[Rfam]
Annotation: A member of the RNA family "Plastid-psbN 5UTR RNA" from Oscillatoria sp. FACHB-1407, 62 nucleotides long. By type it is a cis-regulatory element. From the family's description: Plastid psbN is a non-coding RNA (ncRNA) recognised in plastids. A reference for the family is Richter et al. (2023), "Retrograde signaling in plants: A critical review focusing on the GUN pathway and beyond", Plant Commun.

RNA sequence: UGAAAACUGCCAUCAGAGGGGUGGUGCCCCAACCUGGAGCAACUUUACCGUAUUCAGAAUUC
Dot-bracket structure: .................(((((.((.((.......)).)).)))))................
Numbered sequence: 001u002g003a004a005a006a007c008u009g010c011c012a013u014c015a016g017a018g019g020g021g022u023g024g025u026g027c028c029c030c031a032a033c034c035u036g037g038a039g040c041a042a043c044u045u046u047a048c049c050g051u052a053u054u055c056a057g058a059a060u061u062c
Stems, first nucleotide, its partner, number of pairs: 018046005024040002027037002